Rfam assigns this 488-nucleotide sequence from Glutinoglossum americanum to the family "Group I catalytic intron". Lineage of the source: Eukaryota > Opisthokonta > Fungi > Dikarya > Glutinoglossum. The family's consensus secondary structure is taken from published work. A reference for the family is Cech (1990), "Self-splicing of group I introns", Annu Rev Biochem.
RNA sequence: CUACCCGUAUUGAGGGUCAUGAAAGCGACAUAAAAGGUGAUCGCUAGUGGUUGAGGAGGGGAUGACUGGAAUGAGUGUAGCUGAACUCACGACACCAUCCUUACCUCAACUGCGACACUAUCAAAUUGCGGGGAGUUCCUAAAGCCUUCUGACACCAAGCAGUUGUUGAAAAGCAGCUGUGGCCGGGGUAAUGACCUAGGGUAUGGUAAAAGCUCAGAGGGAUGCUACAAUGGAUAAUCCGCAGCCAAGUCCUAAGUCCUGGUUGAAAGGGGGCUGGUAGCUCGAAUCUUACUAUUUUUCUCAAAAAUAGUAGCAUGUCAACAAAGGGGUUCUUUCACUUGUUGACUCGGCUAGACUCCAGUUCUCAUCAAACAUGGAUAUGGAUGCAGUUCAACGACUAGAUGGUAGUGGGUCUCUAGGCUGGGUGCCGUCAUGGAUCACCCACCAGGGGCUUAAGGUAUAGUCUGCCGGCUUGCUGAAAGGCUCGC
Numbered sequence: 001c002u003a004c005c006c007g008u009a010u011u012g013a014g015g016g017u018c019a020u021g022a023a024a025g026c027g028a029c030a031u032a033a034a035a036g037g038u039g040a041u042c043g044c045u046a047g048u049g050g051u052u053g054a055g056g057a058g059g060g061g062a063u064g065a066c067u068g069g070a071a072u073g074a075g076u077g078u079a080g081c082u083g084a085a086c087u088c089a090c091g092a093c094a095c096c097a098u099c100c101u102u103a104c105c106u107c108a109a110c111u112g113c114g115a116c117a118c119u120a121u122c123a124a125a126u127u128g129c130g131g132g133g134a135g136u137u138c139c140u141a142a143a144g145c146c147u148u149c150u151g152a153c154a155c156c157a158a159g160c161a162g163u164u165g166u167u168g169a170a171a172a173g174c175a176g177c178u179g180u181g182g183c184c185g186g187g188g189u190a191a192u193g194a195c196c197u198a199g200g201g202u203a204u205g206g207u208a209a210a211a212g213c214u215c216a217g218a219g220g221g222a223u224g225c226u227a228c229a230a231u232g233g234a235u236a237a238u239c240c241g242c243a244g245c246c247a248a249g250u251c252c253u254a255a256g257u258c259c260u261g262g263u264u265g266a267a268a269g270g271g272g273g274c275u276g277g278u279a280g281c282u283c284g285a286a287u288c289u290u291a292c293u294a295u296u297u298u299u300c301u302c303a304a305a306a307a308u309a310g311u312a313g314c315a316u317g318u319c320a321a322c323a324a325a326g327g328g329g330u331u332c333u334u335u336c337a338c339u340u341g342u343u344g345a346c347u348c349g350g351c352u353a354g355a356c357u358c359c360a361g362u363u364c365u366c367a368u369c370a371a372a373c374a375u376g377g378a379u380a381u382g383g384a385u386g387c388a389g390u391u392c393a394a395c396g397a398c399u400a401g402a403u404g405g406u407a408g409u410g411g412g413u414c415u416c417u418a419g420g421c422u423g424g425g426u427g428c429c430g431u432c433a434u435g436g437a438u439c440a441c442c443c444a445c446c447a448g449g450g451g452c453u454u455a456a457g458g459u460a461u462a463g464u465c466u467g468c469c470g471g472c473u474u475g476c477u478g479a480a481a482g483g484c485u486c487g488c
Base pairs, nucleotide, nucleotide: 002012023031116410117409118408119407120406122404123403127243128242129241130240131239132238137234138233139232244390245389249385250384251383252382257378258377259376394466396465397464398463399462400461412452413451414450415449416448417447419445475484476483477482